[Rfam]
RNA sequence: GGGUCAGCGUUAGCUCAAGCAGUUACUUCCUCACACUGGACUUUCCAUCCAUCCAAUCCCUGCACUGGGGUUCGAGACCCAUGGGUGCUUUCUGAACCUUCA
Numbered sequence: 001g002g003g004u005c006a007g008c009g010u011u012a013g014c015u016c017a018a019g020c021a022g023u024u025a026c027u028u029c030c031u032c033a034c035a036c037u038g039g040a041c042u043u044u045c046c047a048u049c050c051a052u053c054c055a056a057u058c059c060c061u062g063c064a065c066u067g068g069g070g071u072u073c074g075a076g077a078c079c080c081a082u083g084g085g086u087g088c089u090u091u092c093u094g095a096a097c098c099u100u101c102a
Stems, first nucleotide, its partner, number of pairs: 002097001004095004013086004019082001022079001027076003
The record is a 102-nucleotide RNA from Prolemur simus, which matches "Vault RNA" in Rfam. The base pairs follow the family's consensus structure, which is taken from published work. Lineage of the source: Eukaryota > Eumetazoa > Craniata > Strepsirrhini > Prolemur. It scores 48 bits against the family's covariance model. Rfam classes the family as a non-coding RNA gene.